[Rfam]
RNA sequence: CGGUGAUGUCUCCUUUCCGUUAUCCAUGGAGGCACUCGGUCAUGCUGUGGGUUGAAUGAACCUUAGACGCUAAGUCGUCGAUGGUGUGGUGUGAGGAUGGGUUAGAUGCCCA
Numbered sequence: 001c002g003g004u005g006a007u008g009u010c011u012c013c014u015u016u017c018c019g020u021u022a023u024c025c026a027u028g029g030a031g032g033c034a035c036u037c038g039g040u041c042a043u044g045c046u047g048u049g050g051g052u053u054g055a056a057u058g059a060a061c062c063u064u065a066g067a068c069g070c071u072a073a074g075u076c077g078u079c080g081a082u083g084g085u086g087u088g089g090u091g092u093g094a095g096g097a098u099g100g101g102u103u104a105g106a107u108g109c110c111c112a
Base pairs, nucleotide, nucleotide: 001019002018003017007034008033009032010031011030012029013028035095036094037093038092039090040089041088042087043086044085045084046083049063050062051061052060053059066079067078068077069076098112099111100110101109102108
This 112-nucleotide RNA from Rossellomorea vietnamensis belongs to the Rfam family "epsC RNA". By type it is a cis-regulatory element. It scores 108 bits against the family's covariance model.